[Rfam]
Nucleotides: 079
Stems, first nucleotide, its partner, number of pairs: 012068009021058003025055003030050002
Number, partner (000 for none) and nucleotide at each position: 001000a002000c003000a004000u005000a006000u007000a008000c009000a010000c011000g012068c013067c014066c015065u016064u017063g018062u019061c020060a021058u022057u023056c024000u025055u026054c027053u028000u029000g030050c031049c032000c033000g034000g035000u036000g037000u038000u039000u040000a041000u042000c043000a044000c045000u046000a047000c048000u049031g050030g051000a052000c053027g054026g055025a056023g057022a058021a059000c060020u061019g062018a063017u064016a065015a066014g067013g068012g069000c070000a071000u072000g073000u074000g075000u076000u077000g078000u079000g
About this RNA
This 79-nucleotide sequence from Heliconius melpomene belongs to the Rfam family "mir-184 microRNA precursor family". The literature on the family includes a 2005 paper in Genes Dev by Chen et al., "The developmental miRNA profiles of zebrafish as determined by small RNA cloning". Rfam links the family to the GO terms RISC complex and gene silencing by miRNA.